[Rfam]
RNA sequence: ACGGUACUACAGUGUACAAGGGUAUAGUAAUAAAAAACCCCGAAUUCUCGGGGUUUUUUAUUACUAUACCCUUGUACUAAUGGGCUCUUUAGGCCCUUUUUUU
Numbered sequence: 001a002c003g004g005u006a007c008u009a010c011a012g013u014g015u016a017c018a019a020g021g022g023u024a025u026a027g028u029a030a031u032a033a034a035a036a037a038c039c040c041c042g043a044a045u046u047c048u049c050g051g052g053g054u055u056u057u058u059u060a061u062u063a064c065u066a067u068a069c070c071c072u073u074g075u076a077c078u079a080a081u082g083g084g085c086u087c088u089u090u091a092g093g094c095c096c097u098u099u100u101u102u103u
Stems, first nucleotide, its partner, number of pairs: 034057009082096004
A member of the RNA family "Gammaprotebacteria rimP leader" from Pantoea sp. Nvir, 103 nucleotides long. The base pairs follow the family's consensus structure, which is taken from published work. A reference for the family is Naville and Gautheret (2010), "Premature terminator analysis sheds light on a hidden world of bacterial transcriptional attenuation", Genome Biol.